The family of this 103-nucleotide RNA from Oceanobacillus halophilus is "SAM riboswitch aptamer (S box leader)". On this family, see Grundy and Henkin, Mol Microbiol 1998: "The S box regulon: a new global transcription termination control system for methionine and cysteine biosynthesis genes in gram-positive bacteria". The SAM riboswitch is found upstream of a number of genes which code for proteins involved in methionine or cysteine biosynthesis in Gram-positive bacteria.
RNA sequence: UUCUUAUCCAGAGAGGUGGAGGGACUGGCCCUUGGAAGCCUCGGCAGCGGACUUUUAAUAGUACUGUGCCAAUUCCAGCAGCUAAAAAGCUAAAAGAUAAGAA
Numbered sequence: 001u002u003c004u005u006a007u008c009c010a011g012a013g014a015g016g017u018g019g020a021g022g023g024a025c026u027g028g029c030c031c032u033u034g035g036a037a038g039c040c041u042c043g044g045c046a047g048c049g050g051a052c053u054u055u056u057a058a059u060a061g062u063a064c065u066g067u068g069c070c071a072a073u074u075c076c077a078g079c080a081g082c083u084a085a086a087a088a089g090c091u092a093a094a095a096g097a098u099a100a101g102a103a
Stems, first nucleotide, its partner, number of pairs: 001103008013042005021031003025078004043070004048066002050062001052061002074095001080091004